[Rfam]
DABA-DC-AT RNA: a 144-nucleotide sequence from Vibrio gelatinilyticus. NCBI's taxonomy places the organism under Bacteria, Pseudomonadati, Vibrionales, Vibrionaceae, Vibrio. Rfam classes the family as a cis-regulatory element.
RNA sequence: GCAAUCUCGGUAUGAAUCUGGGGGAUACGCGUUGUGAACAUUCAGGCUGAUUGUGACACAGCGUAGGGUAGGUACUGAUUAUGCCAAUAAUCAGUAGACGGGAUACUAAUGUCGUAAGGCGACAUGAUAAUGGGAAACCCAACA
Numbered sequence: 001g002c003a004a005u006c007u008c009g010g011u012a013u014g015a016a017u018c019u020g021g022g023g024g025a026u027a028c029g030c031g032u033u034g035u036g037a038a039c040a041u042u043c044a045g046g047c048u049g050a051u052u053g054u055g056a057c058a059c060a061g062c063g064u065a066g067g068g069u070a071g072g073u074a075c076u077g078a079u080u081a082u083g084c085c086a087a088u089a090a091u092c093a094g095u096a097g098a099c100g101g102g103a104u105a106c107u108a109a110u111g112u113c114g115u116a117a118g119g120c121g122a123c124a125u126g127a128u129a130a131u132g133g134g135a136a137a138c139c140c141a142a143c144a
Base pairs, nucleotide, nucleotide: 006022007021008020009019010018029064030063031062032061033060034059035058036057038054039053040052073096074095075094076093077092078091079090080089081088082087110124111123112122113121114120115119